The family of this 141-nucleotide RNA from Brugia malayi is "U4 spliceosomal RNA". The family has 177 seed sequences and 32,178 matches in Rfam 15.1. It is one of the family's seed sequences. The family's RNA type in Rfam is spliceosomal small nuclear RNA.
RNA sequence: AGCUUUGCGCAGUGGCGAUAACGUGACCAAUGAGGCUUAGCCGAGGUGCGUUUAUUGCUGGUUGAAAACUUUCACCCAAUUGCCCGCCGCAGCUCCUGAAAAAUGGAUGCUGUAGGCAAUUUUUGAACGCCCCGCACGGGG
Numbered sequence: 001a002g003c004u005u006u007g008c009g010c011a012g013u014g015g016c017g018a019u020a021a022c023g024u025g026a027c028c029a030a031u032g033a034g035g036c037u038u039a040g041c042c043g044a045g046g047u048g049c050g051u052u053u054a055u056u057g058c059u060g061g062u063u064g065a066a067a068a069c070u071u072u073c074a075c076c077c078a079a080u081u082g083c084c085c086g087c088c089g090c091a092g093c094u095c096c097u098g099a100a101a102a103a104u105g106g107a108u109g110c111u112g113u114a115g116g117c118a119a120u121u122u123u124u125g126a127a128c129g130c131c132c133c134g135c136a137c138g139g140g141g
Stems, first nucleotide, its partner, number of pairs: 020052005026047003034042003086117003089113005096106003130141004
NCBI's taxonomy places the organism under Eukaryota, Eumetazoa, Bilateria, Filarioidea, Brugia. For this family Rfam cites "The uRNA database" (Zwieb, Nucleic Acids Res, 1997).